[Rfam]
RNA: Small nucleolar RNA Z159/U59
Organism: Gossypium arboreum
RNA sequence: GUCUCUAAUGAUUAUUUAAAUUUGAAAAACUUUCGUUCUUCUGAGAGAAAAAAUCUGUGCGGAAUUUCUAUAUGGAGACCUGAGCUGAAGAGAC
Numbered sequence: 001g002u003c004u005c006u007a008a009u010g011a012u013u014a015u016u017u018a019a020a021u022u023u024g025a026a027a028a029a030c031u032u033u034c035g036u037u038c039u040u041c042u043g044a045g046a047g048a049a050a051a052a053a054u055c056u057g058u059g060c061g062g063a064a065u066u067u068c069u070a071u072a073u074g075g076a077g078a079c080c081u082g083a084g085c086u087g088a089a090g091a092g093a094c
Stems, first nucleotide, its partner, number of pairs: 003092004